[Rfam]
RNA sequence: AUUGCACUAUUAAUCAGAAACUGUUCACGGUUUAUGGACUUGUUUCCUUCAUGCAGUGCAAAGAAAGAUGAUAAUCAUACUCACUUUACCCGUACGUCUGUUGACAUUGUCAAGCAGUGAUGGCGUAUGGGUCAUUAUCGUAUGACACAUUCU
Number, nucleotide and partner (000 for none) at each position: 001a000002u000003u060004g059005c058006a057007c056008u055009a000010u000011u000012a000013a000014u000015c000016a000017g046018a045019a044020a043021c042022u000023g039024u038025u037026c036027a035028c000029g000030g000031u000032u000033u000034a000035u027036g026037g025038a024039c023040u000041u000042g021043u020044u019045u018046c017047c000048u000049u000050c000051a000052u000053g000054c000055a008056g007057u006058g005059c004060a003061a000062a000063g000064a000065a000066a000067g000068a000069u000070g000071a000072u000073a000074a000075u000076c000077a000078u000079a000080c000081u000082c000083a000084c000085u000086u000087u000088a000089c131090c130091c129092g000093u127094a126095c125096g124097u123098c122099u120100g000101u113102u112103g111104a110105c109106a000107u000108u000109g105110u104111c103112a102113a101114g000115c000116a000117g000118u000119g000120a099121u000122g098123g097124c096125g095126u094127a093128u000129g091130g090131g089132u000133c000134a000135u000136u000137a000138u000139c000140g000141u000142a000143u000144g000145a000146c000147a000148c000149a000150u000151u000152c000153u000
A member of the RNA family "small nucleolar RNA snR90" from Schizosaccharomyces cryophilus, 153 nucleotides long. The base pairs follow the family's consensus structure, which was predicted with RNAalifold. By type it is an H/ACA-box small nucleolar RNA. Gene Ontology terms of the family: nucleolus and RNA processing.